[Rfam]
RNA: Glycine riboswitch aptamer
Organism: Kocuria sp. HSID16901
RNA sequence: AAAGCGCUUUCGGGAGAGAUCCGGCUCGACCGGACGCCGAAGGAGCAAACCCUCCCCGGGAAACUCUCAGGCCCAUGAACCGAAAACGUCAG
Numbered sequence: 001a002a003a004g005c006g007c008u009u010u011c012g013g014g015a016g017a018g019a020u021c022c023g024g025c026u027c028g029a030c031c032g033g034a035c036g037c038c039g040a041a042g043g044a045g046c047a048a049a050c051c052c053u054c055c056c057c058g059g060g061a062a063a064c065u066c067u068c069a070g071g072c073c074c075a076u077g078a079a080c081c082g083a084a085a086a087c088g089u090c091a092g
Stems, first nucleotide, its partner, number of pairs: 006087001008085006020034004036072003039068002043066003050058001